[Rfam]
RNA sequence: ACGCUGUUUCAGGGCGAGGUGAAAUUCCUCACUGGCGGUAACGGAGAAGAUCGGGCAGACGGCCCGCCUCCGAAGUCCGCGACCCUCGGCUCGUUGGUUCGAGUCCCGAGGUUGACCCGGUGCGAAUCCGGGACCAACGGUUAAAGUCCGGAUGGAAGAGGCAGGUG
Numbered sequence: 001a002c003g004c005u006g007u008u009u010c011a012g013g014g015c016g017a018g019g020u021g022a023a024a025u026u027c028c029u030c031a032c033u034g035g036c037g038g039u040a041a042c043g044g045a046g047a048a049g050a051u052c053g054g055g056c057a058g059a060c061g062g063c064c065c066g067c068c069u070c071c072g073a074a075g076u077c078c079g080c081g082a083c084c085c086u087c088g089g090c091u092c093g094u095u096g097g098u099u100c101g102a103g104u105c106c107c108g109a110g111g112u113u114g115a116c117c118c119g120g121u122g123c124g125a126a127u128c129c130g131g132g133a134c135c136a137a138c139g140g141u142u143a144a145a146g147u148c149c150g151g152a153u154g155g156a157a158g159a160g161g162c163a164g165g166u167g
Base pairs, nucleotide, nucleotide: 004164005163006162007161008160009159010158017029018028019027031147032146033136034135035080036079037078038077075134076133084111085110086109087108088107089106116132117131118130119129120128138150139149140148
RNA: FMN riboswitch aptamer (RFN element)
Organism: Slackia exigua